[Rfam]
Shown here is a 193-nucleotide RNA from Pseudoalteromonas phenolica, a member of the family "Lysine riboswitch aptamer". The base pairs follow the family's consensus structure, which is taken from published work. Its family is annotated with lysine biosynthetic process in the Gene Ontology. Rfam describes the family as follows. Riboswitches are metabolite binding domains within certain messenger RNAs that serve as precision sensors for their corresponding targets. Allosteric rearrangement of mRNA structure is mediated by ligand binding, and this results in modulation of gene expression. NCBI's taxonomy places the organism under Bacteria, Pseudomonadota, Alteromonadales, Pseudoalteromonadaceae, Pseudoalteromonas.

RNA sequence: AGGGCUGGAAGAGGUGCGUUAUUCAGGUAGCGCGGUUGAGGAGAGCAAACUCCAUUGAUGCCGUAGCGAGGGGAAUUAACGCCGAGAAGCAAGCGUAUUUGCUAGACGUUUACUUCGGGCGACUGGGCUGAAUCCCAGCGACUGUCACCAAUUGCGCAAGGCGCAAGAAUUUUGGUGGAGAGCUUCUGGUCUU
Numbered sequence: 001a002g003g004g005c006u007g008g009a010a011g012a013g014g015u016g017c018g019u020u021a022u023u024c025a026g027g028u029a030g031c032g033c034g035g036u037u038g039a040g041g042a043g044a045g046c047a048a049a050c051u052c053c054a055u056u057g058a059u060g061c062c063g064u065a066g067c068g069a070g071g072g073g074a075a076u077u078a079a080c081g082c083c084g085a086g087a088a089g090c091a092a093g094c095g096u097a098u099u100u101g102c103u104a105g106a107c108g109u110u111u112a113c114u115u116c117g118g119g120c121g122a123c124u125g126g127g128c129u130g131a132a133u134c135c136c137a138g139c140g141a142c143u144g145u146c147a148c149c150a151a152u153u154g155c156g157c158a159a160g161g162c163g164c165a166a167g168a169a170u171u172u173u174g175g176u177g178g179a180g181a182g183c184u185u186c187u188g189g190u191c192u193u
Base pairs, nucleotide, nucleotide: 006188007187008186009185010184011183016082017081018080019079020078021077023075030067031066032064033063034062035061036060086116087115088114089113091111092110093109094108095107096106117143118142120140123138124137125136126135127134145178146177147176148175149174150173151172